RNA: Nuclear RNase P
RNA sequence: UCAGUUGCAAUCUAGCAUCUGGGGCACACAAACGAGUAUUUUCUAACAAUGUCAUUCACAACCCUUAUUUGGGAAGUAAAUGUGCUUUGAUAGAAUGUAGAUUACUCUAAUAUAGCCUCGGGAAGGUCUGAGAGUUGGUCAAAGUUCAUUUCAAACAUGCUGUGGUGCGUGUGAACUUAAACCGAUGCAUUUUCUAGCAGGAAACUUGUAUGAUUAAGAGGCGAAGGGACAAGAAAUUCUGAAAAUUCCAAUAGGCCUUAGGACCUUACGAAUAUUCAUUGAAAUCCUUUGUGACCAGCAAUUUUAGUGCGAUGUGCUUGCUGCAUUCUAUGCAGAACUCAAUUCAGACUAAUCUGUGACUGA
Numbered sequence: 001u002c003a004g005u006u007g008c009a010a011u012c013u014a015g016c017a018u019c020u021g022g023g024g025c026a027c028a029c030a031a032a033c034g035a036g037u038a039u040u041u042u043c044u045a046a047c048a049a050u051g052u053c054a055u056u057c058a059c060a061a062c063c064c065u066u067a068u069u070u071g072g073g074a075a076g077u078a079a080a081u082g083u084g085c086u087u088u089g090a091u092a093g094a095a096u097g098u099a100g101a102u103u104a105c106u107c108u109a110a111u112a113u114a115g116c117c118u119c120g121g122g123a124a125g126g127u128c129u130g131a132g133a134g135u136u137g138g139u140c141a142a143a144g145u146u147c148a149u150u151u152c153a154a155a156c157a158u159g160c161u162g163u164g165g166u167g168c169g170u171g172u173g174a175a176c177u178u179a180a181a182c183c184g185a186u187g188c189a190u191u192u193u194c195u196a197g198c199a200g201g202a203a204a205c206u207u208g209u210a211u212g213a214u215u216a217a218g219a220g221g222c223g224a225a226g227g228g229a230c231a232a233g234a235a236a237u238u239c240u241g242a243a244a245a246u247u248c249c250a251a252u253a254g255g256c257c258u259u260a261g262g263a264c265c266u267u268a269c270g271a272a273u274a275u276u277c278a279u280u281g282a283a284a285u286c287c288u289u290u291g292u293g294a295c296c297a298g299c300a301a302u303u304u305u306a307g308u309g310c311g312a313u314g315u316g317c318u319u320g321c322u323g324c325a326u327u328c329u330a331u332g333c334a335g336a337a338c339u340c341a342a343u344u345c346a347g348a349c350u351a352a353u354c355u356g357u358g359a360c361u362g363a
Stems, first nucleotide, its partner, number of pairs: 001363004007357003012320001014318005021119005034107005128347005137296004190204005205220003209216002221292007241277003321335005